[Rfam]
RNA sequence: GGUCAUCGAGAUCGUCCUCCUCCUCCCAAUCGAUCUCGAGCCGAUGGCAGCCCCCCUCCUCCCAGGCUGACGUCAACAUUCGAAGCCCGUCGCACCUCCUCCCGCGGCGGGCUUUCGUU
Numbered sequence: 001g002g003u004c005a006u007c008g009a010g011a012u013c014g015u016c017c018u019c020c021u022c023c024u025c026c027c028a029a030u031c032g033a034u035c036u037c038g039a040g041c042c043g044a045u046g047g048c049a050g051c052c053c054c055c056c057u058c059c060u061c062c063c064a065g066g067c068u069g070a071c072g073u074c075a076a077c078a079u080u081c082g083a084a085g086c087c088c089g090u091c092g093c094a095c096c097u098c099c100u101c102c103c104g105c106g107g108c109g110g111g112c113u114u115u116c117g118u119u
Stems, first nucleotide, its partner, number of pairs: 007038007014030002043074004048069005083114011
The family of this 119-nucleotide sequence from Pseudorhizobium pelagicum is "Alphaproteobacterial ar14". Rfam classes the family as a small RNA. Rfam links the family to the GO term biological process involved in symbiotic interaction. The match comes from Rfam's covariance-model search (92 bits). Rfam's curators write: Smr14C2 was renamed NfeR1 (Nodule Formation Efficiency RNA) highly expressed in salt stress and during the symbiotic interaction on legume roots. The base pairs follow the family's consensus structure. NCBI's taxonomy places the organism under Bacteria, Pseudomonadati, Alphaproteobacteria, Hyphomicrobiales, Pseudorhizobium. On this family, see Robledo et al., Environ Microbiol 2017: "A conserved alpha-proteobacterial small RNA contributes to osmoadaptation and symbiotic efficiency of rhizobia on legume roots".